Shown here is a 58-nucleotide sequence from Streptomyces sp. YIM 130001, a member of the family "msiK RNA". The base pairs follow the family's consensus structure, which is taken from published work. A search with the family's covariance model found it, with a score of 53 bits.

[Rfam]
RNA sequence: ACACCACUUCCUUUACUCGGAUCGUCCGGCACGUUCCUGCCGGUGAAGGGGGCAACAG
Numbered sequence: 001a002c003a004c005c006a007c008u009u010c011c012u013u014u015a016c017u018c019g020g021a022u023c024g025u026c027c028g029g030c031a032c033g034u035u036c037c038u039g040c041c042g043g044u045g046a047a048g049g050g051g052g053c054a055a056c057a058g
Stems, first nucleotide, its partner, number of pairs: 009050007026043006
Dot-bracket structure: ........(((((((..........((((((......)))))))))))))........